Background
A member of the RNA family "U1 spliceosomal RNA" from Aotus nancymaae, 160 nucleotides long. About the family: U1 is a small nuclear RNA (snRNA) component of the spliceosome (involved in pre-mRNA splicing). Its 5' end forms complementary base pairs with the 5' splice junction, thus defining the 5' donor site of an intron. The source organism's lineage runs through Eukaryota, Eumetazoa, Euteleostomi, Tetrapoda and Aotus. The family has 100 seed sequences and 40,184 matches in Rfam 15.1.
RNA sequence: AUUGUUACCUGGUAGGGGAGAUACCGUGAUCAUAAAGUGGUUUUCCCAGGGCGAGGCUUAUCCAUUGCACUCCAAUGUGUUGACCCCUGCAAUUUCUUCAAAUGUGGGAAAUUAGACUGCACAAUAUGUGGUAGUGCGGACUGCAUUCUUACUUUCCCCU
Numbered sequence: 001a002u003u004g005u006u007a008c009c010u011g012g013u014a015g016g017g018g019a020g021a022u023a024c025c026g027u028g029a030u031c032a033u034a035a036a037g038u039g040g041u042u043u044u045c046c047c048a049g050g051g052c053g054a055g056g057c058u059u060a061u062c063c064a065u066u067g068c069a070c071u072c073c074a075a076u077g078u079g080u081u082g083a084c085c086c087c088u089g090c091a092a093u094u095u096c097u098u099c100a101a102a103u104g105u106g107g108g109a110a111a112u113u114a115g116a117c118u119g120c121a122c123a124a125u126a127u128g129u130g131g132u133a134g135u136g137c138g139g140a141c142u143g144c145a146u147u148c149u150u151a152c153u154u155u156c157c158c159c160u
Base pairs, nucleotide, nucleotide: 012120013119014118015117016047017046018045019044020043021042023041024040025039026038027037048088049087050086051085053084055081056080057079059077060076061075090115092113093111094110095109097107098106136159138157139156140155143152145150
Rfam classes the family as a spliceosomal small nuclear RNA.